[Rfam]
RNA sequence: AGCCUAAACCAGUAAGCAAUUGCUGGCAUGGUGAAGAAGUCUGAUCAGAGCUAAAAAACCCAUCAUAUGGGGUUGCUCUGAUCAGCCACGUCGGGAAACCGGCGCGGAGGGCGCAAGUCCUC
Numbered sequence: 001a002g003c004c005u006a007a008a009c010c011a012g013u014a015a016g017c018a019a020u021u022g023c024u025g026g027c028a029u030g031g032u033g034a035a036g037a038a039g040u041c042u043g044a045u046c047a048g049a050g051c052u053a054a055a056a057a058a059c060c061c062a063u064c065a066u067a068u069g070g071g072g073u074u075g076c077u078c079u080g081a082u083c084a085g086c087c088a089c090g091u092c093g094g095g096a097a098a099c100c101g102g103c104g105c106g107g108a109g110g111g112c113g114c115a116a117g118u119c120c121u122c
Base pairs, nucleotide, nucleotide: 002032003031004030009026010025011024012023013022014021015020041085042084043083044082045081046080047079048078049077050076051075057074058073059072060071061070087106089104090103091102092101093100094099107122108121109120110119111118112117
Dot-bracket structure: .(((....(((((((....)))))))...)))........(((((((((((.....(((((........)))))))))))))))).(.((((((....)))))).)((((((....))))))
The record is a 122-nucleotide RNA, which matches "LOOT RNA" in Rfam. Pairs were carried over by alignment from the consensus structure, which is taken from published work. The family's RNA type in Rfam is small RNA. Rfam's curators put it in the seed alignment.